[Rfam]
RNA: Plant signal recognition particle RNA
RNA sequence: GCCCUAGGGUAAUGUUUAUUAAGGGCAUUAAAGGUGGCGUGGAUGUAUGGUGCGGACUCUGAGCCUGGACCUGCGGUGUGCCUUUGCUGUCUGCCCGUUCCAAGUUGGUAGUGGCCUGUGUUGGGGGCUCAGGCGAUAGUUUGGGCCUCCCUGGACCUAAAGUGGCAGGAACGGCGUGAGGCUGGCUUCACAGAGCAGCGAUCACUGCCCGUUUCCAACGGUGGAAGGAUAACAGGCCGCUGCACCACGGGCCCAAUACAAGCCCGGAGUCCCUCUACAACAGACCACCAUUUUU
Numbered sequence: 001g002c003c004c005u006a007g008g009g010u011a012a013u014g015u016u017u018a019u020u021a022a023g024g025g026c027a028u029u030a031a032a033g034g035u036g037g038c039g040u041g042g043a044u045g046u047a048u049g050g051u052g053c054g055g056a057c058u059c060u061g062a063g064c065c066u067g068g069a070c071c072u073g074c075g076g077u078g079u080g081c082c083u084u085u086g087c088u089g090u091c092u093g094c095c096c097g098u099u100c101c102a103a104g105u106u107g108g109u110a111g112u113g114g115c116c117u118g119u120g121u122u123g124g125g126g127g128c129u130c131a132g133g134c135g136a137u138a139g140u141u142u143g144g145g146c147c148u149c150c151c152u153g154g155a156c157c158u159a160a161a162g163u164g165g166c167a168g169g170a171a172c173g174g175c176g177u178g179a180g181g182c183u184g185g186c187u188u189c190a191c192a193g194a195g196c197a198g199c200g201a202u203c204a205c206u207g208c209c210c211g212u213u214u215c216c217a218a219c220g221g222u223g224g225a226a227g228g229a230u231a232a233c234a235g236g237c238c239g240c241u242g243c244a245c246c247a248c249g250g251g252c253c254c255a256a257u258a259c260a261a262g263c264c265c266g267g268a269g270u271c272c273c274u275c276u277a278c279a280a281c282a283g284a285c286c287a288c289c290a291u292u293u294u295u
Base pairs, nucleotide, nucleotide: 015023016022017021030295031294032293033292034291035290036289037288039286041285044282045281046279048277050275052273054271055270057269058268059267060266061265063263064262066260067254068253070251071250072249073248076246078245079244080243082242086240087239089237090236091235092234093233095228096227098226099225100224101223102222104219105218106217107216108215110213111212112211113156115154116153118151123150124149125148126147127146128145129144130143131142132141133140134139157162164209165208166207167206168205173202175200176199177198182193183192184191